[Rfam]
RNA sequence: UCGGGCAUUCAUUUGCAGCCGCCCGGCUUUCCCAAGACGCUUUGUCCAAGCGCUGC
Dot-bracket structure: ((((((........[[[[[.)))))).........(((.....))).....]]]]]

The family of this 56-nucleotide RNA from Rugositalea oryzae is "chrB-b RNA". The family's RNA type in Rfam is cis-regulatory element.